[Rfam]
RNA: Histone 3' UTR stem-loop
Organism: Marmota marmota
RNA sequence: CCAAAGGCUCUUUUCAGAGCCACCCCACCUUCUCUGUGAAAGAAGCU
Numbered sequence: 001c002c003a004a005a006g007g008c009u010c011u012u013u014u015c016a017g018a019g020c021c022a023c024c025c026c027a028c029c030u031u032c033u034c035u036g037u038g039a040a041a042g043a044a045g046c047u
Stems, first nucleotide, its partner, number of pairs: 006021006